The record is an 81-nucleotide sequence from Gouania willdenowi, which matches "mir-181 microRNA precursor family" in Rfam. Its family is annotated with miRNA-mediated post-transcriptional gene silencing and RISC complex in the Gene Ontology. Rfam 15.1 lists 3,490 matches to the family in 650 species.
RNA sequence: UUGCCUCGAUGAACAUUCAACGCUGUCGGUGAGUUUGGAUUACUUUAAAACCAUCGACCGUUGACUGUGCCUUGUGGCUCG
Numbered sequence: 001u002u003g004c005c006u007c008g009a010u011g012a013a014c015a016u017u018c019a020a021c022g023c024u025g026u027c028g029g030u031g032a033g034u035u036u037g038g039a040u041u042a043c044u045u046u047a048a049a050a051c052c053a054u055c056g057a058c059c060g061u062u063g064a065c066u067g068u069g070c071c072u073u074g075u076g077g078c079u080c081g
Stems, first nucleotide, its partner, number of pairs: 001081001003079001004077002007074002014067002017064006025058007033051004